Rfam assigns this 90-nucleotide RNA sequence from Streptomyces coelicolor to the family "ZMP/ZTP riboswitch aptamer (pfl RNA motif)". The family's consensus secondary structure is taken from published work. Taxonomically the source falls in Streptomyces (Bacteria, Actinomycetota, Actinomycetes, Kitasatosporales).
[Rfam]
RNA sequence: ACCCCGGGCCGUGACUGGCGCGCUGGGAUGGGACGAACCAUCGGGAAGCGGCCCCGGAAACACCGAGAGCCGUGCGCCUGGGCCAUCCGU
Numbered sequence: 001a002c003c004c005c006g007g008g009c010c011g012u013g014a015c016u017g018g019c020g021c022g023c024u025g026g027g028a029u030g031g032g033a034c035g036a037a038c039c040a041u042c043g044g045g046a047a048g049c050g051g052c053c054c055c056g057g058a059a060a061c062a063c064c065g066a067g068a069g070c071c072g073u074g075c076g077c078c079u080g081g082g083c084c085a086u087c088c089g090u
Base pairs, nucleotide, nucleotide: 003057004056006054007053008052009051010050011049012048015045016044017078018077019076020075021074028041029040030039031038069083070082071081